[Rfam]
RNA sequence: GUAUGAUGAUGAAAUCCAUGCGUGUCAACUGACUCUGUCCGUCUCAGCUGUGGCGUUGCUCUGGGCGGCGUUCUGCUGGCCGAGAUUUUCGUGACAGCUGAGACCCAGAGACAUGAUCACAACUCAUGGUCCUGAAUAC
Dot-bracket structure: ((((......................................(((((((((..........................................))))))))).................................))))
A member of the RNA family "Small nucleolar RNA SNORD10" from Oryzias latipes, 139 nucleotides long. The sequence is in the family's curated seed alignment. It is annotated as a C/D-box small nucleolar RNA. The family has 22 seed sequences and 433 matches in Rfam 15.1. Gene Ontology terms of the family: RNA processing and nucleolus.